[Rfam]
RNA sequence: UGACCCAGGUUCAUACUUGAUUAUCCACUGAACCCAGGCGUAUCACCAAGCGGGGGAGAAGAAGCUAACCAGGAUUCCCUUAGUAAGUGAGUGAACAUGGAAAAGACCAGCACAGAAGCCUGUGGUCUUUUGGCCCCUAGGCAACGUGAUGCCCAGGUUAGAUCGCGAAGAUGUUGCUCUAUCUUAAGUCCUAUAUUCAGCAAGGUUGCUCGGACAUGGCCCAAUGGGCGUGGAGGGCACUUGGGGGUGGAAAUUCAGAAUGGCCAGUAUCUUCGUGAGCAGACCUUGGAGUCGGGUUGUUUGAGAAUGCACCCCAAGGCCGGUGGUUAAGUCCAUCCAAGGCUAAAUACUAGCACGAGUCCGAUAGCGAACAAGUACCGUGAGGGAAAGUUGAAAAAUACUUUGAAGAGUAAACAGUGCGUGAAACCGUUCAGAGGUAAA
Numbered sequence: 001u002g003a004c005c006c007a008g009g010u011u012c013a014u015a016c017u018u019g020a021u022u023a024u025c026c027a028c029u030g031a032a033c034c035c036a037g038g039c040g041u042a043u044c045a046c047c048a049a050g051c052g053g054g055g056g057a058g059a060a061g062a063a064g065c066u067a068a069c070c071a072g073g074a075u076u077c078c079c080u081u082a083g084u085a086a087g088u089g090a091g092u093g094a095a096c097a098u099g100g101a102a103a104a105g106a107c108c109a110g111c112a113c114a115g116a117a118g119c120c121u122g123u124g125g126u127c128u129u130u131u132g133g134c135c136c137c138u139a140g141g142c143a144a145c146g147u148g149a150u151g152c153c154c155a156g157g158u159u160a161g162a163u164c165g166c167g168a169a170g171a172u173g174u175u176g177c178u179c180u181a182u183c184u185u186a187a188g189u190c191c192u193a194u195a196u197u198c199a200g201c202a203a204g205g206u207u208g209c210u211c212g213g214a215c216a217u218g219g220c221c222c223a224a225u226g227g228g229c230g231u232g233g234a235g236g237g238c239a240c241u242u243g244g245g246g247g248u249g250g251a252a253a254u255u256c257a258g259a260a261u262g263g264c265c266a267g268u269a270u271c272u273u274c275g276u277g278a279g280c281a282g283a284c285c286u287u288g289g290a291g292u293c294g295g296g297u298u299g300u301u302u303g304a305g306a307a308u309g310c311a312c313c314c315c316a317a318g319g320c321c322g323g324u325g326g327u328u329a330a331g332u333c334c335a336u337c338c339a340a341g342g343c344u345a346a347a348u349a350c351u352a353g354c355a356c357g358a359g360u361c362c363g364a365u366a367g368c369g370a371a372c373a374a375g376u377a378c379c380g381u382g383a384g385g386g387a388a389a390g391u392u393g394a395a396a397a398a399u400a401c402u403u404u405g406a407a408g409a410g411u412a413a414a415c416a417g418u419g420c421g422u423g424a425a426a427c428c429g430u431u432c433a434g435a436g437g438u439a440a441a
Stems, first nucleotide, its partner, number of pairs: 024055001025053002028050002036041001065072002076101003080097001086092001104344002107341001111151002115147001118142005124136002156285002158282002163278004170271003179267002183263002188238001190237003246256002294315003298311003322337004378385002401410003
The family of this 441-nucleotide part of an RNA from Fasciola hepatica is "Eukaryotic large subunit ribosomal RNA". The match comes from Rfam's covariance-model search (1659 bits). The organism belongs to Fasciola, within Eukaryota. Rfam links the family to the GO terms structural constituent of ribosome and ribosome. The family's consensus secondary structure is taken from published work.